A member of the RNA family "mir-9229 microRNA precursor family" from Pipistrellus kuhlii, 76 nucleotides long. The source organism's lineage runs through Eukaryota, Bilateria, Chordata, Dipnotetrapodomorpha and Pipistrellus. The family's consensus secondary structure was predicted with RNAalifold. The family has 7 seed sequences and 27,225 matches in Rfam 15.1.
RNA sequence: GAGACACCCUUAUGGGGCAGAACUUGCUUCACUGGGGCUUUGGUGCUCACUGAGUAAGCCCCUUAAGUGUGUUGCU
Numbered sequence: 001g002a003g004a005c006a007c008c009c010u011u012a013u014g015g016g017g018c019a020g021a022a023c024u025u026g027c028u029u030c031a032c033u034g035g036g037g038c039u040u041u042g043g044u045g046c047u048c049a050c051u052g053a054g055u056a057a058g059c060c061c062c063u064u065a066a067g068u069g070u071g072u073u074g075c076u
Stems, first nucleotide, its partner, number of pairs: 001075001003073005009067004014062005022055002029053003033049004037044002